[Rfam]
A member of the RNA family "6C RNA" from Acrocarpospora corrugata, 77 nucleotides long.

RNA sequence: AACGGCCCGGCUCUACCCCCCCGGAGCCGGACCGGUCGGCGACCCCCGCUCUCCCCCCCCGGCGGGGGUCGCCAUUU
Numbered sequence: 001a002a003c004g005g006c007c008c009g010g011c012u013c014u015a016c017c018c019c020c021c022c023g024g025a026g027c028c029g030g031a032c033c034g035g036u037c038g039g040c041g042a043c044c045c046c047c048g049c050u051c052u053c054c055c056c057c058c059c060c061g062g063c064g065g066g067g068g069u070c071g072c073c074a075u076u077u
Stems, first nucleotide, its partner, number of pairs: 002036002004033002007030007038073013

The literature on the family includes a 2007 paper in Nucleic Acids Res by Weinberg et al., "Identification of 22 candidate structured RNAs in bacteria using the CMfinder comparative genomics pipeline". It is annotated as a cis-regulatory element.